The record is a 52-nucleotide RNA from Candidatus Viadribacter manganicus, which matches "terC RNA" in Rfam.
RNA sequence: CCGUAGGUUCGGGCCCCUCUGGCGGCGUGCGCUGCGAUGUCGAACCUACAUC
Numbered sequence: 001c002c003g004u005a006g007g008u009u010c011g012g013g014c015c016c017c018u019c020u021g022g023c024g025g026c027g028u029g030c031g032c033u034g035c036g037a038u039g040u041c042g043a044a045c046c047u048a049c050a051u052c
Stems, first nucleotide, its partner, number of pairs: 006046007022035005
The family's consensus secondary structure is taken from published work. It scores 49 bits against the family's covariance model. Rfam classes the family as a cis-regulatory element. The source organism's lineage runs through Bacteria, Pseudomonadota, Hyphomonadales, Hyphomonadaceae and Candidatus Viadribacter.